[Rfam]
RNA sequence: UAUGUAUCGGGAGCAGUGUCUUCCAUAUUUC
Numbered sequence: 001u002a003u004g005u006a007u008c009g010g011g012a013g014c015a016g017u018g019u020c021u022u023c024c025a026u027a028u029u030u031c
Stems, first nucleotide, its partner, number of pairs: 002030001004028004009024005014018001
RNA: Iron response element II